[Rfam]
Rfam assigns this 104-nucleotide sequence from an uncultured vent archaeon to the family "Insect-specific Flavivirus 3' UTR cis-acting replication element (CRE)". Flavi_ISFV_CRE is a Insect specific Flavivirus family. Flavivirus 3' UTR cis-acting replication element (CRE) plays a crucial role in the virus replication and is thought to be needed for the formation of a 'replication complex', it is composed of a small hairpin (sHP) and a larger structural element (3'SL). It has been shown that mutations in sHP are lethal for viruses. CRE is involved in the 5'-3' UTR interaction of flaviviruses. The sequence is in the family's curated seed alignment. The family's consensus secondary structure was predicted with LocARNA.
RNA sequence: CCAGGGAAAAGACCGGAGAAACUUCUUGCUUACUCGCAGCAACCACCGAAAGGCACAGUAUGCCUGAAACAUUCGGUGGUUGAUGUAGUAAACAACCAGUUUCU
Numbered sequence: 001c002c003a004g005g006g007a008a009a010a011g012a013c014c015g016g017a018g019a020a021a022c023u024u025c026u027u028g029c030u031u032a033c034u035c036g037c038a039g040c041a042a043c044c045a046c047c048g049a050a051a052g053g054c055a056c057a058g059u060a061u062g063c064c065u066g067a068a069a070c071a072u073u074c075g076g077u078g079g080u081u082g083a084u085g086u087a088g089u090a091a092a093c094a095a096c097c098a099g100u101u102u103c104u
Stems, first nucleotide, its partner, number of pairs: 020101004026095003030091002033088002036086003042081001044078006053063002